[Rfam]
RNA sequence: GAGAAGAAUCUGUAAAGCUCAGGAGGGAUAGCGCCAUCAUGAUCACACACAUCGAUAUUUUUGGCGCUGUCCAUCCUGAGUUUCAUUGGCUCUUCUU
Numbered sequence: 001g002a003g004a005a006g007a008a009u010c011u012g013u014a015a016a017g018c019u020c021a022g023g024a025g026g027g028a029u030a031g032c033g034c035c036a037u038c039a040u041g042a043u044c045a046c047a048c049a050c051a052u053c054g055a056u057a058u059u060u061u062u063g064g065c066g067c068u069g070u071c072c073a074u075c076c077u078g079a080g081u082u083u084c085a086u087u088g089g090c091u092c093u094u095c096u097u
Stems, first nucleotide, its partner, number of pairs: 010088001016082009026072010
Overview
A member of the RNA family "MIR390 microRNA precursor family" from Brassica rapa, 97 nucleotides long. It is one of the family's seed sequences. The family's consensus secondary structure was predicted with WAR. Gene Ontology terms of the family: miRNA-mediated post-transcriptional gene silencing and RISC complex.